The family of this 92-nucleotide sequence from Dyella soli is "SAH (S-adenosyl-L-homocysteine) riboswitch aptamer". Its family is annotated with regulation of gene expression and S-adenosylhomocysteine metabolic process in the Gene Ontology.
[Rfam]
RNA sequence: CCUGUCGAGGGGCGCUGCGACCGCAAGUACCUGUAUCCACGGGUCAGGCGGCCAGGCUCGACAGAUCGUCAUUGGAACGGCGCCCGGUCAAC
Numbered sequence: 001c002c003u004g005u006c007g008a009g010g011g012g013c014g015c016u017g018c019g020a021c022c023g024c025a026a027g028u029a030c031c032u033g034u035a036u037c038c039a040c041g042g043g044u045c046a047g048g049c050g051g052c053c054a055g056g057c058u059c060g061a062c063a064g065a066u067c068g069u070c071a072u073u074g075g076a077a078c079g080g081c082g083c084c085c086g087g088u089c090a091a092c
Base pairs, nucleotide, nucleotide: 002064003063004062005061006060007059008058021051022050023049024048
Notes:
The family has 52 seed sequences and 1,354 matches in Rfam 15.1. A search with the family's covariance model found it, with a score of 56 bits.